Annotation:
A member of the RNA family "Hepatitis C virus stem-loop SL2531 and SL2549AU", 72 nucleotides long. On this family, see Pirakitikulr et al., Mol Cell 2016: "The Coding Region of the HCV Genome Contains a Network of Regulatory RNA Structures". Rfam classes the family as a cis-regulatory element. The family's consensus secondary structure was predicted with RNAfold.
RNA sequence: UCCUGGCAGAUGCCCGGAUUUGCACGUGUCUCUGGUUAAUGCUGCUCAUAAGUAAUGUUGAGGCAGCAGUGG
Numbered sequence: 001u002c003c004u005g006g007c008a009g010a011u012g013c014c015c016g017g018a019u020u021u022g023c024a025c026g027u028g029u030c031u032c033u034g035g036u037u038a039a040u041g042c043u044g045c046u047c048a049u050a051a052g053u054a055a056u057g058u059u060g061a062g063g064c065a066g067c068a069g070u071g072g
Stems, first nucleotide, its partner, number of pairs: 006023006025066001027065005034058001037055001